Rfam assigns this 68-nucleotide sequence from Solanum lycopersicum to the family "Small nucleolar RNA Z105". Rfam links the family to the GO terms RNA processing and nucleolus. Taxonomically the source falls in Solanum subgen. Lycopersicon (Eukaryota, Streptophyta, Spermatophyta, Solanoideae). The family's RNA type in Rfam is C/D-box small nucleolar RNA.
RNA sequence: GCAUAAUGAUGAUGCAAAAUUUGUUCCGAUUAUUCAUGAAUGGAAUACCAACCUCCUACUCAUUCUGA
Numbered sequence: 001g002c003a004u005a006a007u008g009a010u011g012a013u014g015c016a017a018a019a020u021u022u023g024u025u026c027c028g029a030u031u032a033u034u035c036a037u038g039a040a041u042g043g044a045a046u047a048c049c050a051a052c053c054u055c056c057u058a059c060u061c062a063u064u065c066u067g068a
Stems, first nucleotide, its partner, number of pairs: 006063004024043001027038001